The family of this 149-nucleotide RNA sequence from Lachnospiraceae bacterium A2 is "Ribosomal protein L10 leader". It is annotated as a cis-regulatory leader.
RNA sequence: UACUAACCAAGUAUAUGACCGAAGACAGCAGGUGCCGCAAGGCAUAACAGCAAGGCCUGCCGAGGAAGUUUACAGGAUAUUUUCCAGUAAAUGAUGAAAGAUUUUUCAAGCCUCUUUGUCUCGGACAAAGGGGCUUUUAAGCAGUUUAA
Numbered sequence: 001u002a003c004u005a006a007c008c009a010a011g012u013a014u015a016u017g018a019c020c021g022a023a024g025a026c027a028g029c030a031g032g033u034g035c036c037g038c039a040a041g042g043c044a045u046a047a048c049a050g051c052a053a054g055g056c057c058u059g060c061c062g063a064g065g066a067a068g069u070u071u072a073c074a075g076g077a078u079a080u081u082u083u084c085c086a087g088u089a090a091a092u093g094a095u096g097a098a099a100g101a102u103u104u105u106u107c108a109a110g111c112c113u114c115u116u117u118g119u120c121u122c123g124g125a126c127a128a129a130g131g132g133g134c135u136u137u138u139a140a141g142c143a144g145u146u147u148a149a
Stems, first nucleotide, its partner, number of pairs: 028060006034043003110134010

Description
Lineage of the source: Bacteria > Bacillota > Clostridia > Lachnospirales > Lachnospiraceae. This family is a putative r-protein leader autoregulatory structure found in B. subtilis and other low-GC Gram-positive bacteria. Gene Ontology term of the family: regulation of gene expression. A reference for the family is Zengel and Lindahl (1994), "Diverse mechanisms for regulating ribosomal protein synthesis in Escherichia coli", Prog Nucleic Acid Res Mol Biol. It scores 76 bits against the family's covariance model.